Rfam assigns this 72-nucleotide RNA from Pristionchus pacificus to the family "tRNA". The base pairs follow the family's consensus structure, which is taken from published work. Gene Ontology term of the family: triplet codon-amino acid adaptor activity. Rfam describes the family as follows. Transfer RNA (tRNA) molecules are approximately 80 nucleotides in length. Their secondary structure includes four short double-helical elements and three loops (D, anti-codon, and T loops). Further hydrogen bonds mediate the characteristic L-shaped molecular structure. tRNAs have two regions of fundamental functional importance: the anti-codon, which is responsible for specific mRNA codon recognition, and the 3' end, to which the tRNAs corresponding amino acid is attached (by aminoacyl-tRNA synthetases). tRNAs cope with the degeneracy of the genetic code in two manners: having more than one tRNA (with a specific anti-codon) for a particular amino acid; and 'wobble' base-pairing, i.e. permitting non-standard base-pairing at the 3rd anti-codon position. A reference for the family is Hou (1993), "The tertiary structure of tRNA and the development of the genetic code", Trends Biochem Sci. The family's RNA type in Rfam is transfer RNA.
RNA sequence: GGGGGUAUAGCUCAGUGGUUAGAGCACCCGCAUACGUAUUGAAGGUCGGGGGUUCGACUCCCUCUGCCUCCA
Numbered sequence: 001g002g003g004g005g006u007a008u009a010g011c012u013c014a015g016u017g018g019u020u021a022g023a024g025c026a027c028c029c030g031c032a033u034a035c036g037u038a039u040u041g042a043a044g045g046u047c048g049g050g051g052g053u054u055c056g057a058c059u060c061c062c063u064c065u066g067c068c069u070c071c072a
Stems, first nucleotide, its partner, number of pairs: 001071007010025004048064005